[Rfam]
RNA sequence: GGACGGUGACGAUUGUAUCAAGAAAGGUCUCGUUCGUCGUAAUUGGCCUCCGUUGAAGGGGGCCUUGCCGACCAUCCUGAUAUAUCACCACCCAUAUUCUGAGUCC
Numbered sequence: 001g002g003a004c005g006g007u008g009a010c011g012a013u014u015g016u017a018u019c020a021a022g023a024a025a026g027g028u029c030u031c032g033u034u035c036g037u038c039g040u041a042a043u044u045g046g047c048c049u050c051c052g053u054u055g056a057a058g059g060g061g062g063c064c065u066u067g068c069c070g071a072c073c074a075u076c077c078u079g080a081u082a083u084a085u086c087a088c089c090a091c092c093c094a095u096a097u098u099c100u101g102a103g104u105c106c
Base pairs, nucleotide, nucleotide: 001106002105003104004103050061
RNA: Small nucleolar RNA Z43
Organism: Punica granatum